[Rfam]
RNA: MIR2275 microRNA precursor family
RNA sequence: CAGUUGAAUUUGAGGUUUGGAUGAGACCAAAUCUUACUGGAGACUGAGACAAGAUUUGGUUUCCUCCAAUAUCUCAUGUUCAGUUG
Dot-bracket structure: ...(((((..((((..(((((.((((((((.((...................)).)))))))).)))))...))))..)))))...